The record is a 105-nucleotide RNA from Prunus dulcis, which matches "MIR6274 microRNA precursor family" in Rfam. The base pairs follow the family's consensus structure, which was predicted with RNAalifold.

RNA sequence: GGAUAACACUUUUUGCUAUUUUCGGCUAAUAAUGCAAUGACAUGUAGGAUAACUUUUUCAUAUGUCAUUAUGUUAUUGGUCGUGAAUAGCAAAAUAGUGCUAUUC
Numbered sequence: 001g002g003a004u005a006a007c008a009c010u011u012u013u014u015g016c017u018a019u020u021u022u023c024g025g026c027u028a029a030u031a032a033u034g035c036a037a038u039g040a041c042a043u044g045u046a047g048g049a050u051a052a053c054u055u056u057u058u059c060a061u062a063u064g065u066c067a068u069u070a071u072g073u074u075a076u077u078g079g080u081c082g083u084g085a086a087u088a089g090c091a092a093a094a095u096a097g098u099g100c101u102a103u104u105c
Base pairs, nucleotide, nucleotide: 002104003103004102005101011094012093013092014091015090016089017088018087019086021084023082024081025080026079027078028077029076030075031074032073033072034071036069037068038067039066040065041064042063043062044061045060047058048057049056
Its family is annotated with miRNA-mediated post-transcriptional gene silencing and RISC complex in the Gene Ontology.